[Rfam]
RNA sequence: ACUCGAUAAAGGCAAACUCAUCGAAAGGUGAGGACGCAAAGCCAUGGAUCUACAGCUGAUUUCAGCCAGGAUAGCCAGGUUGCCGGG
Number, nucleotide and partner (000 for none) at each position: 001a000002c000003u000004c000005g000006a000007u000008a000009a000010a000011g000012g037013c036014a000015a000016a000017c032018u031019c030020a029021u028022c027023g000024a000025a000026a000027g022028g021029u020030g019031a018032g017033g000034a000035c000036g013037c012038a000039a000040a081041g080042c079043c078044a000045u077046g076047g075048a072049u071050c070051u000052a000053c000054a000055g066056c065057u064058g063059a000060u000061u000062u000063c058064a057065g056066c055067c000068a000069g000070g050071a049072u048073a000074g000075c047076c046077a045078g043079g042080u041081u040082g000083c000084c000085g000086g000087g000

Shown here is an 87-nucleotide sequence from Pelolinea submarina, a member of the family "c-di-GMP-I riboswitch aptamer". The source organism's lineage runs through Bacteria, Chloroflexota, Anaerolineae, Anaerolineales and Pelolinea. Gene Ontology term of the family: cyclic-di-GMP binding. It scores 87 bits against the family's covariance model. The base pairs follow the family's consensus structure, which is taken from published work.